[Rfam]
RNA: S15-Flavobacteria ribosomal protein leader
RNA sequence: UAUAUUUGCUGCUUUGAUGAAAACUCAUCAAUAUACAUAAUAAUCAUUUAAAUAAUAUUGGAAUG
Number, nucleotide and partner (000 for none) at each position: 001u000002a000003u000004a000005u000006u000007u000008g000009c000010u000011g000012c000013u000014u031015u030016g029017a028018u027019g026020a000021a000022a000023a000024c000025u000026c019027a018028u017029c016030a015031a014032u000033a000034u000035a000036c000037a000038u000039a000040a000041u000042a000043a000044u000045c000046a000047u000048u000049u000050a000051a000052a000053u000054a000055a000056u000057a000058u000059u000060g000061g000062a000063a000064u000065g000